[Rfam]
RNA sequence: AAAUAUUUUUAUCUCUUUGAAAUUUGUCCUGGUGGGACCCUUUGCCUUGGCACUGAGUGUUCCGAA
Numbered sequence: 001a002a003a004u005a006u007u008u009u010u011a012u013c014u015c016u017u018u019g020a021a022a023u024u025u026g027u028c029c030u031g032g033u034g035g036g037a038c039c040c041u042u043u044g045c046c047u048u049g050g051c052a053c054u055g056a057g058u059g060u061u062c063c064g065a066a
Stems, first nucleotide, its partner, number of pairs: 034063005040057003043052002
Overview:
This 66-nucleotide RNA from Drosophila mojavensis belongs to the Rfam family "U7 small nuclear RNA". Animal histone pre-mRNAs are spliced by a different mechanism than nuclear pre-mRNAs and self-splicing introns. This processing involves the U7 snRNP, which contains only one RNA species: U7. The 5' end of U7 RNA is thought to base-pair to a conserved spacer element downstream of the cleavage site in histone pre-mRNA. This family contains a number of annotated U7 pseudogenes. It is one of the family's seed sequences. Pairs were carried over by alignment from the consensus structure, which was predicted with PFOLD.